[Rfam]
RNA sequence: GAAAACGUAGUUCGAAACCAUCCUACGUAAAAAAACUAAGGGAGU
Numbered sequence: 001g002a003a004a005a006c007g008u009a010g011u012u013c014g015a016a017a018c019c020a021u022c023c024u025a026c027g028u029a030a031a032a033a034a035a036c037u038a039a040g041g042g043a044g045u
Stems, first nucleotide, its partner, number of pairs: 006027005016037001

This 45-nucleotide RNA from Listeria booriae belongs to the Rfam family "PreQ1 (pre queuosine) riboswitch aptamer".
The base pairs follow the family's consensus structure.
The match comes from Rfam's covariance-model search (44 bits).
On this family, see Reader et al., J Biol Chem 2004: "Identification of four genes necessary for biosynthesis of the modified nucleoside queuosine".
This family is a bacterial riboswitch that binds to the metabolite preQ1, an intermediate in the biosynthesis of the modified nucleoside queuosine from GTP. One example of this riboswitch is located in the leader of the Bacillus subtilis ykvJKLM (queCDEF) operon which encodes four genes necessary for queuosine production. PreQ1 binding to the riboswitch aptamer is thought to induce premature transcription termination within the leader to down-regulate expression of these genes.